Source information:
This 128-nucleotide RNA sequence from Glycine max belongs to the Rfam family "MIR1520 microRNA precursor family". Its Rfam clan is "MIR1520 microRNA precursor clan".
[Rfam]
RNA sequence: CCACAAAGAAAUGUUGAUUUCCAUGUGUCACAUUCUAAUUGGACGAUGAACAAAAAAAAUGUUAGAGUUGACUCUUGUGUGCACCUUUUUAUGUCCAAUCAGAACGUGACACGUGGUAAUCAACGUUU
Numbered sequence: 001c002c003a004c005a006a007a008g009a010a011a012u013g014u015u016g017a018u019u020u021c022c023a024u025g026u027g028u029c030a031c032a033u034u035c036u037a038a039u040u041g042g043a044c045g046a047u048g049a050a051c052a053a054a055a056a057a058a059a060u061g062u063u064a065g066a067g068u069u070g071a072c073u074c075u076u077g078u079g080u081g082c083a084c085c086u087u088u089u090u091a092u093g094u095c096c097a098a099u100c101a102g103a104a105c106g107u108g109a110c111a112c113g114u115g116g117u118a119a120u121c122a123a124c125g126u127u128u
Stems, first nucleotide, its partner, number of pairs: 021116003025112002029108003033104004038099006
Taxonomically the source falls in Glycine subgen. Soja (Eukaryota, Streptophyta, Pentapetalae, Fabales).